[Rfam]
RNA sequence: GGGGGCGAUCUUGGUUUCGACGAGGGUUGCGAAGCAGAUGCGGGCAUACCGGGGUCUCAGAUUCCCGUAAAACACUGAAUCAAAAUAGUCGCAAACGACGAAACUUACGCACUGGCCGCCUAAGGCCUGCCGUUGCAGCAGUUGGUCAAUGGGCUGUGUAGCGCAAGCUACCGCAACGUCAUCUUACAUUGACUGGUUUUCUGUCGGGUUACUUGGCAGGAAAUAAGAUUUAAGGUAACUGGCUCCCAAACAGCCUGUCUGUCGGCGGAAUGGGGGCGAGAUGUUAAGUAGGCAAGACUAAGUAUGUAGAACGCUUUGUAGAGGACUUUCGGACGGGGGUUCAAUUCCCCCCGCCUCCACCA
Number, nucleotide and partner (000 for none) at each position: 001g358002g357003g356004g355005g354006c353007g352008a000009u000010c000011u000012u000013g000014g000015u000016u000017u000018c000019g000020a000021c331022g330023a329024g328025g327026g326027u325028u324029g000030c000031g000032a000033a000034g319035c318036a317037g316038a315039u000040g314041c313042g312043g000044g000045c306046a305047u304048a303049c302050c067051g066052g065053g064054g063055u000056c000057u078058c077059a076060g075061a000062u000063u054064c053065c052066c051067g050068u000069a000070a000071a000072a000073c000074a000075c060076u059077g058078a057079a000080u000081c000082a000083a000084a000085a000086u000087a000088g000089u000090c000091g000092c000093a000094a000095a000096c000097g000098a000099c000100g000101a000102a000103a000104c000105u000106u000107a000108c000109g000110c000111a000112c129113u000114g000115g000116c000117c000118g000119c000120c000121u000122a000123a000124g000125g000126c000127c000128u000129g112130c000131c178132g177133u176134u175135g174136c173137a000138g000139c156140a155141g154142u153143u000144g000145g193146u192147c191148a190149a189150u188151g187152g000153g142154c141155u140156g139157u000158g000159u000160a000161g000162c000163g000164c000165a000166a000167g000168c000169u000170a000171c000172c000173g136174c135175a134176a133177c132178g131179u000180c000181a000182u000183c000184u000185u000186a000187c151188a150189u149190u148191g147192a146193c145194u000195g000196g224197u223198u222199u221200u220201c219202u218203g217204u216205c000206g000207g240208g239209u238210u237211a236212c235213u000214u000215g000216g204217c203218a202219g201220g200221a199222a198223a197224u196225a000226a000227g000228a000229u000230u000231u000232a000233a000234g000235g212236u211237a210238a209239c208240u207241g000242g277243c276244u275245c274246c273247c272248a271249a000250a000251c268252a000253g266254c265255c264256u000257g298258u297259c296260u295261g293262u292263c291264g255265g254266c253267g000268g251269a000270a000271u248272g247273g246274g245275g244276g243277c242278g000279a000280g000281a000282u000283g000284u000285u000286a000287a000288g000289u000290a000291g263292g262293c261294a000295a260296g259297a258298c257299u000300a000301a000302g049303u048304a047305u046306g045307u000308a000309g000310a000311a000312c042313g041314c040315u038316u037317u036318g035319u034320a000321g000322a000323g000324g028325a027326c026327u025328u024329u023330c022331g021332g000333a000334c000335g351336g350337g349338g348339g347340u000341u000342c000343a000344a000345u000346u000347c339348c338349c337350c336351c335352c007353g006354c005355c004356u003357c002358c001359a000360c000361c000362a000
The record is a 362-nucleotide RNA from Neisseria shayeganii, which matches "transfer-messenger RNA" in Rfam.
A reference for the family is Williams and Bartel (1996), "Phylogenetic analysis of tmRNA secondary structure", RNA.
By type it is a non-coding RNA gene.
Taxonomically the source falls in Neisseria shayeganii (Bacteria, Pseudomonadota, Neisseriales, Neisseria).
The match comes from Rfam's covariance-model search (208 bits).